[Rfam]
RNA sequence: GGGGUCGUUACGGAUUCGACAGGCAUUAUGAGGCAUAUUUUGCGACUCGUGUGGCGACGUAAACGCUCAGUUAAAUAUAACUGCAAAAAAUAACACUUCUUACGCUCUAGCUGCCUAAAAACCAGCAGGCGUGACCCGAUUUGGAUUGCUCGUGUUCAAUGACAGGUCUUAUUAUUAGCGAGAUACGAUUAAGCCUUGUCUAGCGGCUUGAUAAGAGAUUGAUAGACUCGCAGUUUCUAGACUUGAGUUAUGUGUCGAGGGGUUGUUAAAAUAAUACAUAACCUAUGGUUGUAGACAAAUAUGUUGGCAGGUGUUUGGACGUGGGUUCGACUCCCACCGGCUCCAUUA
Numbered sequence: 001g002g003g004g005u006c007g008u009u010a011c012g013g014a015u016u017c018g019a020c021a022g023g024c025a026u027u028a029u030g031a032g033g034c035a036u037a038u039u040u041u042g043c044g045a046c047u048c049g050u051g052u053g054g055c056g057a058c059g060u061a062a063a064c065g066c067u068c069a070g071u072u073a074a075a076u077a078u079a080a081c082u083g084c085a086a087a088a089a090a091u092a093a094c095a096c097u098u099c100u101u102a103c104g105c106u107c108u109a110g111c112u113g114c115c116u117a118a119a120a121a122c123c124a125g126c127a128g129g130c131g132u133g134a135c136c137c138g139a140u141u142u143g144g145a146u147u148g149c150u151c152g153u154g155u156u157c158a159a160u161g162a163c164a165g166g167u168c169u170u171a172u173u174a175u176u177a178g179c180g181a182g183a184u185a186c187g188a189u190u191a192a193g194c195c196u197u198g199u200c201u202a203g204c205g206g207c208u209u210g211a212u213a214a215g216a217g218a219u220u221g222a223u224a225g226a227c228u229c230g231c232a233g234u235u236u237c238u239a240g241a242c243u244u245g246a247g248u249u250a251u252g253u254g255u256c257g258a259g260g261g262g263u264u265g266u267u268a269a270a271a272u273a274a275u276a277c278a279u280a281a282c283c284u285a286u287g288g289u290u291g292u293a294g295a296c297a298a299a300u301a302u303g304u305u306g307g308c309a310g311g312u313g314u315u316u317g318g319a320c321g322u323g324g325g326u327u328c329g330a331c332u333c334c335c336a337c338c339g340g341c342u343c344c345a346u347u348a
Stems, first nucleotide, its partner, number of pairs: 001344007020317008032305009043291005048059003053067003107129002110126004133168004138163001139160003143157004149182005188212008198227005230266009240256003247282003252277002321337005